[Rfam]
RNA sequence: CUUACAGAUUUCUUUGGCAUUCUGUCCACCUCCUUUAAUACAUAUAUCUGUAUGUUUAUAAGCGAAUGUAUAUGCUUUGUGAGUGAAGGAGGGAGGUGGGCAUACUGCCAAUAGACAUCUGUUAG
Numbered sequence: 001c002u003u004a005c006a007g008a009u010u011u012c013u014u015u016g017g018c019a020u021u022c023u024g025u026c027c028a029c030c031u032c033c034u035u036u037a038a039u040a041c042a043u044a045u046a047u048c049u050g051u052a053u054g055u056u057u058a059u060a061a062g063c064g065a066a067u068g069u070a071u072a073u074g075c076u077u078u079g080u081g082a083g084u085g086a087a088g089g090a091g092g093g094a095g096g097u098g099g100g101c102a103u104a105c106u107g108c109c110a111a112u113a114g115a116c117a118u119c120u121g122u123u124a125g
Stems, first nucleotide, its partner, number of pairs: 011115001014111006023102014
MIR394 microRNA precursor family: a 125-nucleotide RNA from Arabis nemorensis.
A search with the family's covariance model found it, with a score of 92 bits.
Its family is annotated with RISC complex and miRNA-mediated post-transcriptional gene silencing in the Gene Ontology.